Rfam assigns this 364-nucleotide part of an RNA from Bifidobacterium reuteri to the family "Bacterial large subunit ribosomal RNA". The source organism's lineage runs through Bacteria, Bacillati, Bifidobacteriales, Bifidobacterium and Bifidobacterium reuteri. Rfam links the family to the GO terms structural constituent of ribosome and ribosome.

RNA sequence: CGAGCGAAUCCUGGUCAAGGAACUCGGCAAAUCACUCCCGUUCCUUCGGUUCAAGGGAGGCCCCCGAUGGUGAAAGGACUUGCUCCUGGAGCUUUUGGGGGUGGCACAGACCAGGGGGUAGCGACUGUUUACCAAAAACACAGGUGCAUGCGAAGGCGCAAGCCGCUGUAUAUGCACUGACGCCUGCCCGGUGCCGGAAGGUUAAGAGGAUCCGUCAUCCCUUCGGGGGGCAGCGGUGAAUUCAAGCCCCGGUAAACGGCGGUGGUAACUAUAACCAUCCUAAGGUAGCGAAAUUCCUUGUCGGGUAAGUUCCGACCUGCACGAAUGGCGUAACGACUUCCCCACUGUCUCGACCAGGAGCUCG
Numbered sequence: 001c002g003a004g005c006g007a008a009u010c011c012u013g014g015u016c017a018a019g020g021a022a023c024u025c026g027g028c029a030a031a032u033c034a035c036u037c038c039c040g041u042u043c044c045u046u047c048g049g050u051u052c053a054a055g056g057g058a059g060g061c062c063c064c065c066g067a068u069g070g071u072g073a074a075a076g077g078a079c080u081u082g083c084u085c086c087u088g089g090a091g092c093u094u095u096u097g098g099g100g101g102u103g104g105c106a107c108a109g110a111c112c113a114g115g116g117g118g119u120a121g122c123g124a125c126u127g128u129u130u131a132c133c134a135a136a137a138a139c140a141c142a143g144g145u146g147c148a149u150g151c152g153a154a155g156g157c158g159c160a161a162g163c164c165g166c167u168g169u170a171u172a173u174g175c176a177c178u179g180a181c182g183c184c185u186g187c188c189c190g191g192u193g194c195c196g197g198a199a200g201g202u203u204a205a206g207a208g209g210a211u212c213c214g215u216c217a218u219c220c221c222u223u224c225g226g227g228g229g230g231c232a233g234c235g236g237u238g239a240a241u242u243c244a245a246g247c248c249c250c251g252g253u254a255a256a257c258g259g260c261g262g263u264g265g266u267a268a269c270u271a272u273a274a275c276c277a278u279c280c281u282a283a284g285g286u287a288g289c290g291a292a293a294u295u296c297c298u299u300g301u302c303g304g305g306u307a308a309g310u311u312c313c314g315a316c317c318u319g320c321a322c323g324a325a326u327g328g329c330g331u332a333a334c335g336a337c338u339u340c341c342c343c344a345c346u347g348u349c350u351c352g353a354c355c356a357g358g359a360g361c362u363c364g
Stems, first nucleotide, its partner, number of pairs: 001364004009359008018350003035059005044049001060102008103107001115343004120338002122335002126140003143178008151168001155164003181330004186260003191257002193253005200248003206242002212236004218229004261279006280284001290317001300316006